[Rfam]
This 83-nucleotide sequence from Dyella dinghuensis belongs to the Rfam family "Glycine riboswitch aptamer". Taxonomically the source falls in Dyella (Bacteria, Pseudomonadota, Gammaproteobacteria, Lysobacterales). It scores 58 bits against the family's covariance model.
RNA sequence: CUCUGGAGAGACCGGUUGAAUCCGGCGCCGAAGGGGCACGAAGCAGCAACAACGCUUCCAAACUCUCAGGCAAAAGGACAGAG
Numbered sequence: 001c002u003c004u005g006g007a008g009a010g011a012c013c014g015g016u017u018g019a020a021u022c023c024g025g026c027g028c029c030g031a032a033g034g035g036g037c038a039c040g041a042a043g044c045a046g047c048a049a050c051a052a053c054g055c056u057u058c059c060a061a062a063c064u065c066u067c068a069g070g071c072a073a074a075a076g077g078a079c080a081g082a083g
Base pairs, nucleotide, nucleotide: 001083002082003081004080005079012025013024014023015022027071028070029069030067031066034065035064036063040058041057042056043055044054